[Rfam]
RNA sequence: GGCACAGAUACUGCAUAUGCUAGGGCGGAGCUUCGAACAAGGUAUUGUUCGGGGGAGUCGGCACAGCGCCGGCGUUAUCGCUUU
Numbered sequence: 001g002g003c004a005c006a007g008a009u010a011c012u013g014c015a016u017a018u019g020c021u022a023g024g025g026c027g028g029a030g031c032u033u034c035g036a037a038c039a040a041g042g043u044a045u046u047g048u049u050c051g052g053g054g055g056a057g058u059c060g061g062c063a064c065a066g067c068g069c070c071g072g073c074g075u076u077a078u079c080g081c082u083u084u
Base pairs, nucleotide, nucleotide: 031054032053033052034051035050036049037048038047039046040045057073058072059071060070061069062068
Dot-bracket structure: ..............................((((((((((....))))))))))..((((((.....))))))...........
A member of the RNA family "rpfG RNA" from Xanthomonas vasicola, 84 nucleotides long. The base pairs follow the family's consensus structure, which is taken from published work. It is annotated as a small RNA. Taxonomically the source falls in Xanthomonas vasicola pv. vasculorum (Bacteria, Pseudomonadati, Gammaproteobacteria, Lysobacteraceae).